[Rfam]
RNA sequence: ACGCAUAAUGGUAAAAUUAGAUAUAUUUCACCAUAAUUACAUUAAAUAAGUUACCAAAUAGGAAUUAUGGUAUAAU
Numbered sequence: 001a002c003g004c005a006u007a008a009u010g011g012u013a014a015a016a017u018u019a020g021a022u023a024u025a026u027u028u029c030a031c032c033a034u035a036a037u038u039a040c041a042u043u044a045a046a047u048a049a050g051u052u053a054c055c056a057a058a059u060a061g062g063a064a065u066u067a068u069g070g071u072a073u074a075a076u
Stems, first nucleotide, its partner, number of pairs: 030071008
Notes:
The family of this 76-nucleotide RNA from Parvimonas sp. oral taxon 110 is "dfrA-dnaX RNA". It is annotated as a small RNA. NCBI's taxonomy places the organism under Bacteria, Tissierellia, Tissierellales, Peptoniphilaceae, Parvimonas sp. oral taxon 110.